[Rfam]
RNA sequence: GAAUACCUCUGGGGAUUGGUGAAAUUCCAUACCGGCGGUCAAGCCCGCGAGCCAUUAUGGCAGAUCUGGUGUAAUUCCAGAGCCGACAGUAAAGUCUGGAUGAGAAGAGGAAAUU
Numbered sequence: 001g002a003a004u005a006c007c008u009c010u011g012g013g014g015a016u017u018g019g020u021g022a023a024a025u026u027c028c029a030u031a032c033c034g035g036c037g038g039u040c041a042a043g044c045c046c047g048c049g050a051g052c053c054a055u056u057a058u059g060g061c062a063g064a065u066c067u068g069g070u071g072u073a074a075u076u077c078c079a080g081a082g083c084c085g086a087c088a089g090u091a092a093a094g095u096c097u098g099g100a101u102g103a104g105a106a107g108a109g110g111a112a113a114u115u
Base pairs, nucleotide, nucleotide: 004112006110007109008108009107010106017029018028019027031095032094033085034084035048036047037046038045043083044082051061052060065081066080067079068078069077087098088097089096

FMN riboswitch aptamer (RFN element): a 115-nucleotide sequence from Desulfitobacterium hafniense. The organism belongs to Desulfitobacterium hafniense, within Bacteria. The family's consensus secondary structure is taken from published work. The RFN element is a highly conserved domain that is found frequently in the 5'-untranslated regions of prokaryotic mRNAs that encode for flavin mononucleotide (FMN) biosynthesis and transport proteins. This element is a metabolite-dependent riboswitch that directly binds FMN in the absence of proteins. In Bacillus subtilis, the riboswitch most likely controls gene expression by causing premature transcription termination within the 5' untranslated region of the ribDEAHT operon and precluding access to the ribosome-binding site of ypaA mRNA.The FMN riboswitch structure, reported in present an FMN-bound six-stem junction, adopts a butterfly-like scaffold, stapled together by opposingly directed but nearly identically folded peripheral domains.